[Rfam]
RNA sequence: CGAUCGGGAGGCCCCCUUGGGACGGGUGCCAGGUAUGGAUCGGUCUUGCAGUCUCGAUGGGAGCCUCACGCCGAAGCCCGGCGGCGAUGCGGC
Numbered sequence: 001c002g003a004u005c006g007g008g009a010g011g012c013c014c015c016c017u018u019g020g021g022a023c024g025g026g027u028g029c030c031a032g033g034u035a036u037g038g039a040u041c042g043g044u045c046u047u048g049c050a051g052u053c054u055c056g057a058u059g060g061g062a063g064c065c066u067c068a069c070g071c072c073g074a075a076g077c078c079c080g081g082c083g084g085c086g087a088u089g090c091g092g093c
Base pairs, nucleotide, nucleotide: 001042002041003040004039005038010030011029012028014026015025016024063093064092065091067089069086070085071084072083073082
Shown here is a 93-nucleotide sequence from Pseudaestuariivita atlantica, a member of the family "Rhodo-rpoB RNA". It is annotated as a cis-regulatory element. A search with the family's covariance model found it, with a score of 67 bits. The family's consensus secondary structure is taken from published work.